[Rfam]
RNA: Potassium channel RNA editing signal
Organism: Varanus komodoensis
RNA sequence: GUAGGUUAUGGUGACAUUUAUCCCAAAACGUUACUGGGCAAAAUAGUUGGAGGAUUGUGUUGUAUUGCAGGAGUGCUAGUAAUAGCACUACCCAUUCCCAUUAUAGUAAACAAU
Numbered sequence: 001g002u003a004g005g006u007u008a009u010g011g012u013g014a015c016a017u018u019u020a021u022c023c024c025a026a027a028a029c030g031u032u033a034c035u036g037g038g039c040a041a042a043a044u045a046g047u048u049g050g051a052g053g054a055u056u057g058u059g060u061u062g063u064a065u066u067g068c069a070g071g072a073g074u075g076c077u078a079g080u081a082a083u084a085g086c087a088c089u090a091c092c093c094a095u096u097c098c099c100a101u102u103a104u105a106g107u108a109a110a111c112a113a114u
Stems, first nucleotide, its partner, number of pairs: 001114002004111001007108003011104001013102002020095002037077004049063001051061001